The family of this 268-nucleotide sequence from Chlorocebus sabaeus is "bip internal ribosome entry site (IRES)". The match comes from Rfam's covariance-model search (247 bits). The organism belongs to Chlorocebus, within Eukaryota.

RNA sequence: CACCGGCCGAGACAGCCCAGAGAGACAGACCGAUUGUGGUGUUUCGCUAGUGUGCGAGGUAAGCGCCGCGGCCUGCAUUUCCAGACCUACCCUUCGCUGGUUCGUGGCGCCUUGUGACUCCCGUCCCCCGCCCCCUGCCGCCUGCAAGUCAGAAAUCGCGCUGCGCUCCUGUGCUGCGGCCUGUGGCUGGACUGCCUGCGACGCCCUGCCUGCUGCCGCCCGACUGGUUGGCAAGAUGAAGCUCUCCCUGGUGGCCGCGAUGCUGCUG
Dot-bracket structure: ...((((((.....((.(((.............(.(.((.......................(((((((((..............................)))))))))..............)).).)......................................))).))..(((((...)))))..............................................................))))))...........
Numbered sequence: 001c002a003c004c005g006g007c008c009g010a011g012a013c014a015g016c017c018c019a020g021a022g023a024g025a026c027a028g029a030c031c032g033a034u035u036g037u038g039g040u041g042u043u044u045c046g047c048u049a050g051u052g053u054g055c056g057a058g059g060u061a062a063g064c065g066c067c068g069c070g071g072c073c074u075g076c077a078u079u080u081c082c083a084g085a086c087c088u089a090c091c092c093u094u095c096g097c098u099g100g101u102u103c104g105u106g107g108c109g110c111c112u113u114g115u116g117a118c119u120c121c122c123g124u125c126c127c128c129c130g131c132c133c134c135c136u137g138c139c140g141c142c143u144g145c146a147a148g149u150c151a152g153a154a155a156u157c158g159c160g161c162u163g164c165g166c167u168c169c170u171g172u173g174c175u176g177c178g179g180c181c182u183g184u185g186g187c188u189g190g191a192c193u194g195c196c197u198g199c200g201a202c203g204c205c206c207u208g209c210c211u212g213c214u215g216c217c218g219c220c221c222g223a224c225u226g227g228u229u230g231g232c233a234a235g236a237u238g239a240a241g242c243u244c245u246c247c248c249u250g251g252u253g254g255c256c257g258c259g260a261u262g263c264u265g266c267u268g
Stems, first nucleotide, its partner, number of pairs: 004257006015174002018171003034130001036128001038126002063110009177189005